[Rfam]
RNA sequence: GUGAGGUGAUGACACAGUUUAUCCAUUCUCUGAGUGCAGUGGAGCUGCCCUCCUGCAGCAGCCCAGCCCCUGUUCUAGGGUCUGGCUGCCGUGCAGCCUCCAGACACCCUGCAGUGUCCCAGUGUGCUGCUGGGGGCUGCUGGGCUGUGUGGUGGCUGCCUGCAGGAGGGGAGCAGUGCUGGCAGGGUUGGAGCCCUUCUUUGGGGGCUCCAUCCUCACUGGGACGAGGGAUGAUGUCUGAUCAC
Numbered sequence: 001g002u003g004a005g006g007u008g009a010u011g012a013c014a015c016a017g018u019u020u021a022u023c024c025a026u027u028c029u030c031u032g033a034g035u036g037c038a039g040u041g042g043a044g045c046u047g048c049c050c051u052c053c054u055g056c057a058g059c060a061g062c063c064c065a066g067c068c069c070c071u072g073u074u075c076u077a078g079g080g081u082c083u084g085g086c087u088g089c090c091g092u093g094c095a096g097c098c099u100c101c102a103g104a105c106a107c108c109c110u111g112c113a114g115u116g117u118c119c120c121a122g123u124g125u126g127c128u129g130c131u132g133g134g135g136g137c138u139g140c141u142g143g144g145c146u147g148u149g150u151g152g153u154g155g156c157u158g159c160c161u162g163c164a165g166g167a168g169g170g171g172a173g174c175a176g177u178g179c180u181g182g183c184a185g186g187g188u189u190g191g192a193g194c195c196c197u198u199c200u201u202u203g204g205g206g207g208c209u210c211c212a213u214c215c216u217c218a219c220u221g222g223g224a225c226g227a228g229g230g231a232u233g234a235u236g237u238c239u240g241a242u243c244a245c
Base pairs, nucleotide, nucleotide: 010244011243012242017237018236020234023230024229026228027227028226030223031222034219035218039183040182042180044177045176046175047174048173049170050169051167052166053165054164055163056162057161059088060087061086062085063084066082068080069079070078071077093159094158095157096156097155098154106146108143111140112139113138114137115136117135118134119133120132121131122130123129124128185217186216187214189212190211191210192209194207195206196205197204